Shown here is a 100-nucleotide RNA sequence from Tardiphaga sp. vice352, a member of the family "Glycine riboswitch aptamer". It scores 65 bits against the family's covariance model. This family represents the bacterial glycine riboswitch. The source organism's lineage runs through Bacteria, Pseudomonadota, Alphaproteobacteria, Hyphomicrobiales and Tardiphaga.
[Rfam]
RNA sequence: AAACGUCGCGUCGGGAGAGAUCGGCCCAUUUUCGGAUGAGGCCGGCGCCGAAGGAGCAACCGCCCCGGAAACUCUCAGGCAAACGGACCGCGCGACGGGA
Numbered sequence: 001a002a003a004c005g006u007c008g009c010g011u012c013g014g015g016a017g018a019g020a021u022c023g024g025c026c027c028a029u030u031u032u033c034g035g036a037u038g039a040g041g042c043c044g045g046c047g048c049c050g051a052a053g054g055a056g057c058a059a060c061c062g063c064c065c066c067g068g069a070a071a072c073u074c075u076c077a078g079g080c081a082a083a084c085g086g087a088c089c090g091c092g093c094g095a096c097g098g099g100a
Stems, first nucleotide, its partner, number of pairs: 006095005012090003021045006047080003050076002054074003060068002